[Rfam]
RNA sequence: UCGUGUAAAACGAAGAAAGUAGUCUUGAUACAUCUGGGCGGACGCUGCUUGCAUGGCAGAUAACAGCGUAUCGUAUCUGUUUCAUGCCCAUUGAUGUUAUGCGGUUUGCCGGAUACGCGCCCUGUCGGUGGCGACAUUUAGACAGGGUAAGCCGCACAAGGCGUUUUAUUUCCUUUCAAUAAUU
Numbered sequence: 001u002c003g004u005g006u007a008a009a010a011c012g013a014a015g016a017a018a019g020u021a022g023u024c025u026u027g028a029u030a031c032a033u034c035u036g037g038g039c040g041g042a043c044g045c046u047g048c049u050u051g052c053a054u055g056g057c058a059g060a061u062a063a064c065a066g067c068g069u070a071u072c073g074u075a076u077c078u079g080u081u082u083c084a085u086g087c088c089c090a091u092u093g094a095u096g097u098u099a100u101g102c103g104g105u106u107u108g109c110c111g112g113a114u115a116c117g118c119g120c121c122c123u124g125u126c127g128g129u130g131g132c133g134a135c136a137u138u139u140a141g142a143c144a145g146g147g148u149a150a151g152c153c154g155c156a157c158a159a160g161g162c163g164u165u166u167u168a169u170u171u172c173c174u175u176u177c178a179a180u181a182a183u184u
Base pairs, nucleotide, nucleotide: 001013002012003011004010021164022162023161024160025159026158027157029156030097031096032095033094034093035090036089037088038087039086044052045051055081056080057079058078059077060076061075101155102154103153104152105151107127

The record is a 184-nucleotide sequence, which matches "RT-2 RNA" in Rfam.
The base pairs follow the family's consensus structure, which is taken from published work.
Rfam's curators put it in the seed alignment.